[Rfam]
RNA: Alphacoronavirus 5'UTR
Organism: Alphacoronavirus hipposideri
RNA sequence: AUUAUUUCUUUCUACGGAAAGUUGUGUCUUUUCUUAGACCUUGUGUCUCCUCCUCUCAACUAAACGAAAUUUUCUCCGUCGCUAGUAUGCUUAGCAUGCUGCGUAUGGUGUAAUUGAAAUUUCAAUAGGUUGCCAAAGUUUGGUAACAAGUGUCGUGCGUCCUAGUAGCUCUGGUUAGGUGUUCCGUCACCAUCCAUCUACUACAAACGCCCUUUGGCAGUUCCGUCUGCUAGAGUGUGUGGAAGACGAGUUCUAGCUUGUCUGAAACCGACAACUGUACCAUAUGGCUCGCAACCAGUUAACGUUGGCUA
Numbered sequence: 001a002u003u004a005u006u007u008c009u010u011u012c013u014a015c016g017g018a019a020a021g022u023u024g025u026g027u028c029u030u031u032u033c034u035u036a037g038a039c040c041u042u043g044u045g046u047c048u049c050c051u052c053c054u055c056u057c058a059a060c061u062a063a064a065c066g067a068a069a070u071u072u073u074c075u076c077c078g079u080c081g082c083u084a085g086u087a088u089g090c091u092u093a094g095c096a097u098g099c100u101g102c103g104u105a106u107g108g109u110g111u112a113a114u115u116g117a118a119a120u121u122u123c124a125a126u127a128g129g130u131u132g133c134c135a136a137a138g139u140u141u142g143g144u145a146a147c148a149a150g151u152g153u154c155g156u157g158c159g160u161c162c163u164a165g166u167a168g169c170u171c172u173g174g175u176u177a178g179g180u181g182u183u184c185c186g187u188c189a190c191c192a193u194c195c196a197u198c199u200a201c202u203a204c205a206a207a208c209g210c211c212c213u214u215u216g217g218c219a220g221u222u223c224c225g226u227c228u229g230c231u232a233g234a235g236u237g238u239g240u241g242g243a244a245g246a247c248g249a250g251u252u253c254u255a256g257c258u259u260g261u262c263u264g265a266a267a268c269c270g271a272c273a274a275c276u277g278u279a280c281c282a283u284a285u286g287g288c289u290c291g292c293a294a295c296c297a298g299u300u301a302a303c304g305u306u307g308g309c310u311a
Stems, first nucleotide, its partner, number of pairs: 003026003008021005036048004066123007074110001076108004081102002084100006130294003138285002141282004146278002149276002151273005164202004174193002178191004212235009239268002245262006